[Rfam]
RNA sequence: CUGCGUGUUCAGCCAAGAGCGGCGUCUCCCGAAGCAGCCCCCGCUCUCCAACAACACGCGAGAGCAACCGGAGGGUCUUUGACUGCCGGGCCGCUUCUGCCCGUCACUGUCACUCGCCCCUCCUAUAUGU
Numbered sequence: 001c002u003g004c005g006u007g008u009u010c011a012g013c014c015a016a017g018a019g020c021g022g023c024g025u026c027u028c029c030c031g032a033a034g035c036a037g038c039c040c041c042c043g044c045u046c047u048c049c050a051a052c053a054a055c056a057c058g059c060g061a062g063a064g065c066a067a068c069c070g071g072a073g074g075g076u077c078u079u080u081g082a083c084u085g086c087c088g089g090g091c092c093g094c095u096u097c098u099g100c101c102c103g104u105c106a107c108u109g110u111c112a113c114u115c116g117c118c119c120c121u122c123c124u125a126u127a128u129g130u
Base pairs, nucleotide, nucleotide: 019038020037022035023034070123071122072121073120074119075118085110086109087103088102089101090100
Shown here is a 130-nucleotide RNA from Tinamus guttatus, a member of the family "Small nucleolar RNA SNORA44". Rfam classes the family as an H/ACA-box small nucleolar RNA. Gene Ontology terms of the family: nucleolus and RNA processing. The family is grouped with related families in Rfam's "SNORA44 clan". Rfam 15.1 lists 1,056 matches to the family in 599 species. For this family Rfam cites "RNomics: an experimental approach that identifies 201 candidates for novel, small, non-messenger RNAs in mouse" (Huttenhofer et al., EMBO J, 2001). The family's consensus secondary structure was predicted with PFOLD. Rfam describes the family as follows. ACA44 is a member of the H/ACA class of snoRNA that guide the sites of modification of uridines to pseudouridines.